[Rfam]
Nucleotides: 082
Stems, first nucleotide, its partner, number of pairs: 001015006045065008
Number, partner (000 for none) and nucleotide at each position: 001015g002014c003013a004012a005011c006010u007000u008000g009000c010006a011005g012004u013003u014002g015001u016000u017000u018000u019000a020000a021000u022000a023000a024000a025000a026000u027000u028000g029000g030000u031000u032000c033000c034000u035000u036000a037000g038000g039000u040000u041000a042000u043000u044000c045065g046064c047063c048062c049061u050060u051059c052058a053000c054000u055000u056000g057000u058052u059051g060050a061049a062048g063047g064046g065045c066000u067000u068000u069000u070000u071000u072000u073000a074000u075000g076000g077000c078000a079000u080000u081000u082000u
The record is an 82-nucleotide sequence from Rodentibacter trehalosifermentans, which matches "Aggregatibacter sRNA JA04" in Rfam. Rfam links the family to the GO term response to iron ion. The family's RNA type in Rfam is small RNA. The match comes from Rfam's covariance-model search (96 bits).